Rfam assigns this 249-nucleotide sequence from Thiohalocapsa sp. PB-PSB1 to the family "Group II catalytic intron D1-D4-6". Lineage of the source: Bacteria > Pseudomonadati > Gammaproteobacteria > Chromatiaceae > Thiohalocapsa.

[Rfam]
RNA sequence: AGAGUCCCGCCUGGGUAAUCGUGAGCCGCGAGCCCAGUAUCGAGCCUUGCGGCGCGGGUGGUAACAGCCGCGUCGAUGCUUCGGCUGAUAAGCAGGCGAGGUGCAAAGGUAACGGGUGGAGCCGACCCUGAAGGUGUUGAGCCCCGAAAAUUUUGGUUGGAGAAUGCCGACGGGUUUGGCCCCCCGGCAGGCAACAACCCGUGUCGCGCUCUGGCGAGCGGCACGGACACUCCCCGGGGUCCUAGGGCC
Dot-bracket structure: ...........((((...((((..[[.)))).)))).((((..(((..(((((((((.((....)).))))))))...)...))).))))................................................(.((((((.............(.((.((((..((((........))))...)))......(((((((((......]]..)))))))))..).)).))))))))........

Background: The match comes from Rfam's covariance-model search (124 bits).